RNA sequence: GGGAGGAACAACCCCAGUGGCGGAGGCAGCUCUGCGGUCCUGGAGUCAGCUCCAGCGGUAACUCCAGAGCUCUCCGUCUGCAGGUCCUGGAGGCUCUGGGGCGGG
Numbered sequence: 001g002g003g004a005g006g007a008a009c010a011a012c013c014c015c016a017g018u019g020g021c022g023g024a025g026g027c028a029g030c031u032c033u034g035c036g037g038u039c040c041u042g043g044a045g046u047c048a049g050c051u052c053c054a055g056c057g058g059u060a061a062c063u064c065c066a067g068a069g070c071u072c073u074c075c076g077u078c079u080g081c082a083g084g085u086c087c088u089g090g091a092g093g094c095u096c097u098g099g100g101g102c103g104g105g
Base pairs, nucleotide, nucleotide: 002097003096004095005094009089010088013084014083019078020077021076022075023074024073025072028071029070030069031068032067033066034065036063040058041057042056
Source information:
A member of the RNA family "mir-8834 microRNA precursor family" from Vulpes vulpes, 105 nucleotides long. The base pairs follow the family's consensus structure, which was predicted with RNAalifold. Rfam 15.1 lists 13,926 matches to the family in 17 species.